The record is a 318-nucleotide RNA sequence from Helicobacter pylori, which matches "Bacterial RNase P class A" in Rfam. Taxonomically the source falls in Helicobacter pylori (Bacteria, Pseudomonadati, Epsilonproteobacteria, Campylobacterales). The family's consensus secondary structure is taken from published work. Rfam's curators put it in the seed alignment. Rfam's curators write: Ribonuclease P (RNase P) is a ubiquitous endoribonuclease, found in archaea, bacteria and eukarya as well as chloroplasts and mitochondria. The family's RNA type in Rfam is ribozyme.
RNA sequence: CGCAUUAGAAGAUGGUCGCUAUUUUAGAAUAGAGGAAAGUCCGGGCUACAUUAGACAAAAUUCCAUCUAACGGAUGGCUAGCGCAAGCUAAGGGAAAGUGCCACAGAAAGCAAACCGCCUUUUUAAGGUAAGGGUGAAAGGGUGGGGUAAGAGCCCACCAAAGCUAAAGCGAUUUAGCUUGUUUGGGCAAACCCAAUUUGUAGCAAGAAGCGCAUGGUAAGUCUAAAUUAAUACGCGCUUCGCUUGAGGAAUAUUGCAAAAUAUUUCCCAGAUAAAUGGCCAUCCAUUGACAGAACCCGGCUUAUUCUAAUGCUUAAC
Numbered sequence: 001c002g003c004a005u006u007a008g009a010a011g012a013u014g015g016u017c018g019c020u021a022u023u024u025u026a027g028a029a030u031a032g033a034g035g036a037a038a039g040u041c042c043g044g045g046c047u048a049c050a051u052u053a054g055a056c057a058a059a060a061u062u063c064c065a066u067c068u069a070a071c072g073g074a075u076g077g078c079u080a081g082c083g084c085a086a087g088c089u090a091a092g093g094g095a096a097a098g099u100g101c102c103a104c105a106g107a108a109a110g111c112a113a114a115c116c117g118c119c120u121u122u123u124u125a126a127g128g129u130a131a132g133g134g135u136g137a138a139a140g141g142g143u144g145g146g147g148u149a150a151g152a153g154c155c156c157a158c159c160a161a162a163g164c165u166a167a168a169g170c171g172a173u174u175u176a177g178c179u180u181g182u183u184u185g186g187g188c189a190a191a192c193c194c195a196a197u198u199u200g201u202a203g204c205a206a207g208a209a210g211c212g213c214a215u216g217g218u219a220a221g222u223c224u225a226a227a228u229u230a231a232u233a234c235g236c237g238c239u240u241c242g243c244u245u246g247a248g249g250a251a252u253a254u255u256g257c258a259a260a261a262u263a264u265u266u267c268c269c270a271g272a273u274a275a276a277u278g279g280c281c282a283u284c285c286a287u288u289g290a291c292a293g294a295a296c297c298c299g300g301c302u303u304a305u306u307c308u309a310a311u312g313c314u315u316a317a318c
Base pairs, nucleotide, nucleotide: 002313003312004311005310006309007308008307009306010305011284012283013282014281015280016279017278019032020031021030022029023028037303038302039301041300042299043298044297045296046203047202048201049200053228058199059198060197061196062195063077064076065075066074067073078092079090080089081088082087093194094193098192099191100188101187102186115133116132117129118128119127120126121125141159142158143157144156145155146154160182161180162179163178164177165176166175167174168173207241208240209239210236211235212234214232215231222230248267249266250265251264252263253262254261255260